[Rfam]
RNA: FMN riboswitch aptamer (RFN element)
Organism: Ruminococcus sp. CAG:330
Nucleotides: 138
Stems, first nucleotide, its partner, number of pairs: 006133005017029003031118002033108002035064004059106002067084003088104005110121003
Number, partner (000 for none) and nucleotide at each position: 001000a002000a003000a004000c005000a006133g007132c008131u009130u010129c011000a012000g013000g014000g015000u016000a017029c018028u019027g020000u021000g022000c023000a024000a025000u026000u027019c028018a029017g030000a031118a032117c033108c034107g035064g036063c037062a038061g039000u040000g041000a042000a043000c044000g045000g046000c047000g048000u049000u050000u051000a052000u053000g054000c055000c056000g057000c058000a059106g060105u061038c062037u063036g064035c065000g066000a067084g068083c069082c070000a071000g072000c073000g074000g075000a076000a077000a078000c079000g080000c081000u082069g083068g084067c085000u086000g087000a088104u089103u090102c091101g092100g093000u094000g095000a096000a097000a098000u099000u100092c101091c102090g103089a104088a105060a106059c107034c108033g109000a110121c111120g112119g113000u114000a115000a116000a117032g118031u119112c120111c121110g122000g123000a124000u125000g126000a127000g128000a129010g130009a131008a132007g133006c134000c135000a136000c137000g138000c